[Rfam]
RNA sequence: AAUACUCCGGCGGCACUCCUCCUCCCGGACGCUGGACAAGCAAGACCCGAUAGUUCCUCCCGUAUGGGUCUUGCAUUAAUGGAAAAGGCCGGUUCCUCCCCCGGCCUUUUCUUUUU
Numbered sequence: 001a002a003u004a005c006u007c008c009g010g011c012g013g014c015a016c017u018c019c020u021c022c023u024c025c026c027g028g029a030c031g032c033u034g035g036a037c038a039a040g041c042a043a044g045a046c047c048c049g050a051u052a053g054u055u056c057c058u059c060c061c062g063u064a065u066g067g068g069u070c071u072u073g074c075a076u077u078a079a080u081g082g083a084a085a086a087g088g089c090c091g092g093u094u095c096c097u098c099c100c101c102c103g104g105c106c107u108u109u110u111c112u113u114u115u116u
Stems, first nucleotide, its partner, number of pairs: 007035006014028001040074010082111011
Alphaproteobacterial ar14: a 116-nucleotide RNA sequence.
It scores 62 bits against the family's covariance model.
Pairs were carried over by alignment from the consensus structure.
Rfam describes the family as follows. Smr14C2 was renamed NfeR1 (Nodule Formation Efficiency RNA) highly expressed in salt stress and during the symbiotic interaction on legume roots.